[Rfam]
RNA sequence: UGCCUAACCCUGCCGCGGUCCGGGAUCCGAUCGAAACCAUCCGGCAGGGACGGGGAAACCACUUUUGGCCUGCAGGAUUCUUGUGCAGGUCUUCGGGGUGAAGCCGCACGCCGUCCUCUGAGCGGAUGGCAACUGCGGCCGGGUGUCUCCCAUCCGAAUCCGACAGCUAACCUCGCAGGCAUCGGGAGAGGUUAC
Numbered sequence: 001u002g003c004c005u006a007a008c009c010c011u012g013c014c015g016c017g018g019u020c021c022g023g024g025a026u027c028c029g030a031u032c033g034a035a036a037c038c039a040u041c042c043g044g045c046a047g048g049g050a051c052g053g054g055g056a057a058a059c060c061a062c063u064u065u066u067g068g069c070c071u072g073c074a075g076g077a078u079u080c081u082u083g084u085g086c087a088g089g090u091c092u093u094c095g096g097g098g099u100g101a102a103g104c105c106g107c108a109c110g111c112c113g114u115c116c117u118c119u120g121a122g123c124g125g126a127u128g129g130c131a132a133c134u135g136c137g138g139c140c141g142g143g144u145g146u147c148u149c150c151c152a153u154c155c156g157a158a159u160c161c162g163a164c165a166g167c168u169a170a171c172c173u174c175g176c177a178g179g180c181a182u183c184g185g186g187a188g189a190g191g192u193u194a195c
Base pairs, nucleotide, nucleotide: 001181002180003179004178008049009048010047011046012045013044014043015042051175052174053173054172055171060095096161097160098159104138105137106136107135141155142154143153144152
Rfam assigns this 195-nucleotide sequence from Arthrobacter sp. FB24 to the family "c-di-AMP riboswitch aptamer (ydaO/yuaA leader)". It scores 55 bits against the family's covariance model. The organism belongs to Arthrobacter, within Bacteria.